The family of this 88-nucleotide RNA from Eucalyptus grandis is "mir-160 microRNA precursor family". It scores 75 bits against the family's covariance model. For this family Rfam cites "Prediction of plant microRNA targets" (Rhoades et al., Cell, 2002).

RNA sequence: AUGUGCCUGGCUCCCUGUAUGCCAUGUGCAGAGAGCGCAUCGGAGAAUCGAUGGUCUCCGCGGAUGGCGUAUGAGGAGCCAAGCAUAU
Numbered sequence: 001a002u003g004u005g006c007c008u009g010g011c012u013c014c015c016u017g018u019a020u021g022c023c024a025u026g027u028g029c030a031g032a033g034a035g036c037g038c039a040u041c042g043g044a045g046a047a048u049c050g051a052u053g054g055u056c057u058c059c060g061c062g063g064a065u066g067g068c069g070u071a072u073g074a075g076g077a078g079c080c081a082a083g084c085a086u087a088u
Stems, first nucleotide, its partner, number of pairs: 001088006008081007016073009027062003